[Rfam]
RNA sequence: UUGGCUGGAUGAGGAUCAUAGGAACCACAUUAAAGCAGAUAAUUGCUUUUAAAUGUUCCUGGGAAGGUCUGAGAAAUGGCCCACACUUUUGGGUGUUAUCUCCGAAAAGGAGUAGUCUCGAGUUGAGGCUGGCGCUGUACUGGAAAGGCUAUCGGUCAGCCGCUGUUAAUUUUGUGCAAAGGGAAAAGAAGUUCGUUUAAAGAAUUGAUCCUGCAUUUAAUUAGCAUUGGGAAACAGUGUUGGUGCUAGCUUUAUUUAAGUGCGAUGAUCCUUUCCAAACACAAUUCAGACUACUCUCCGGCCAA
Numbered sequence: 001u002u003g004g005c006u007g008g009a010u011g012a013g014g015a016u017c018a019u020a021g022g023a024a025c026c027a028c029a030u031u032a033a034a035g036c037a038g039a040u041a042a043u044u045g046c047u048u049u050u051a052a053a054u055g056u057u058c059c060u061g062g063g064a065a066g067g068u069c070u071g072a073g074a075a076a077u078g079g080c081c082c083a084c085a086c087u088u089u090u091g092g093g094u095g096u097u098a099u100c101u102c103c104g105a106a107a108a109g110g111a112g113u114a115g116u117c118u119c120g121a122g123u124u125g126a127g128g129c130u131g132g133c134g135c136u137g138u139a140c141u142g143g144a145a146a147g148g149c150u151a152u153c154g155g156u157c158a159g160c161c162g163c164u165g166u167u168a169a170u171u172u173u174g175u176g177c178a179a180a181g182g183g184a185a186a187a188g189a190a191g192u193u194c195g196u197u198u199a200a201a202g203a204a205u206u207g208a209u210c211c212u213g214c215a216u217u218u219a220a221u222u223a224g225c226a227u228u229g230g231g232a233a234a235c236a237g238u239g240u241u242g243g244u245g246c247u248a249g250c251u252u253u254a255u256u257u258a259a260g261u262g263c264g265a266u267g268a269u270c271c272u273u274u275c276c277a278a279a280c281a282c283a284a285u286u287c288a289g290a291c292u293a294c295u296c297u298c299c300g301g302c303c304a305a
Base pairs, nucleotide, nucleotide: 001305002304003303004302007299008298009297020060021059022058023057024056033048034047035046036045037044038043069289070288071287072286073285079246080245081243082242100112101111102110103109114130115129116128117127118126119125131241132240133239134238135237136236137235153224
The family of this 305-nucleotide RNA sequence from Meloidogyne javanica is "Nuclear RNase P". The base pairs follow the family's consensus structure, which is taken from published work.